[Rfam]
A member of the RNA family "Small nucleolar RNA SNORA17" from Ochotona princeps, 132 nucleotides long. NCBI's taxonomy places the organism under Eukaryota, Mammalia, Eutheria, Boreoeutheria, Ochotona. Rfam 15.1 lists 5,784 matches to the family in 673 species.

RNA sequence: GCUGCCCCUCGAGGCGUUGCAGGUGCGGCUGCUGUGCCGCACCUGUGUCAGCAGGUGGCAGAGAGCAGUGCGGCUACGUCUACGCUCCGCGCCCUGGCACGUGGGCUUCGGAAUGAUUAGUAGGCGGACAGC
Numbered sequence: 001g002c003u004g005c006c007c008c009u010c011g012a013g014g015c016g017u018u019g020c021a022g023g024u025g026c027g028g029c030u031g032c033u034g035u036g037c038c039g040c041a042c043c044u045g046u047g048u049c050a051g052c053a054g055g056u057g058g059c060a061g062a063g064a065g066c067a068g069u070g071c072g073g074c075u076a077c078g079u080c081u082a083c084g085c086u087c088c089g090c091g092c093c094c095u096g097g098c099a100c101g102u103g104g105g106c107u108u109c110g111g112a113a114u115g116a117u118u119a120g121u122a123g124g125c126g127g128a129c130a131g132c
Stems, first nucleotide, its partner, number of pairs: 002061005007055003013049003019046004024041006068129001071126002074123004083115002086112004091106004

From the family's description: snoRNA ACA 17 belongs to the H/ACA family of snoRNAs and is predicted to guide pseudouridylation of the 28S rRNA at positions U4659 and U4598. It shares the same host gene together with ACA43. NB This family has a high threshold value to exclude a large number of closely related sequences that do not appear to have conserved H and ACA boxes, and may be pseudogenes. Rfam classes the family as an H/ACA-box small nucleolar RNA.